[Rfam]
The family of this 128-nucleotide sequence from Phaseolus vulgaris is "Small nucleolar RNA U19".
For this family Rfam cites "Experimental RNomics: identification of 140 candidates for small non-messenger RNAs in the plant Arabidopsis thaliana" (Marker et al., Curr Biol, 2002).
A search with the family's covariance model found it, with a score of 72 bits.
By type it is an H/ACA-box small nucleolar RNA.
RNA sequence: ACGCGGCUUAGUUAGGAGGCACACAUUAAUCGGAUCCGAAUUCGCGUUUGGAUCCCUUCAGAGAAAGGCCUUUUGAAUGGACUCUAUGCGUUUCUAAUCAAUUGUUCCUCAAGCAGCCUUUCACAUUU
Numbered sequence: 001a002c003g004c005g006g007c008u009u010a011g012u013u014a015g016g017a018g019g020c021a022c023a024c025a026u027u028a029a030u031c032g033g034a035u036c037c038g039a040a041u042u043c044g045c046g047u048u049u050g051g052a053u054c055c056c057u058u059c060a061g062a063g064a065a066a067g068g069c070c071u072u073u074u075g076a077a078u079g080g081a082c083u084c085u086a087u088g089c090g091u092u093u094c095u096a097a098u099c100a101a102u103u104g105u106u107c108c109u110c111a112a113g114c115a116g117c118c119u120u121u122c123a124c125a126u127u128u
Stems, first nucleotide, its partner, number of pairs: 005020001007018003033054005063122007072113004077109001079107004085101001
Gene Ontology terms of the family: RNA processing and nucleolus. Rfam 15.1 lists 421 matches to the family in 201 species.